[Rfam]
RNA: Qrr RNA
Organism: Photobacterium aphoticum
RNA sequence: UGACUCUCCUAGAGGGUCAACCUAGCCAACUGACGUUGUUUGUGGAUUUUUUUCACUAAAACAAUGACGCCAACCGAACUGCUUAUCGGUUGGCUUUUUUUUG
Numbered sequence: 001u002g003a004c005u006c007u008c009c010u011a012g013a014g015g016g017u018c019a020a021c022c023u024a025g026c027c028a029a030c031u032g033a034c035g036u037u038g039u040u041u042g043u044g045g046a047u048u049u050u051u052u053u054c055a056c057u058a059a060a061a062c063a064a065u066g067a068c069g070c071c072a073a074c075c076g077a078a079c080u081g082c083u084u085a086u087c088g089g090u091u092g093g094c095u096u097u098u099u100u101u102u103g
Stems, first nucleotide, its partner, number of pairs: 001019006036067004042056005070093008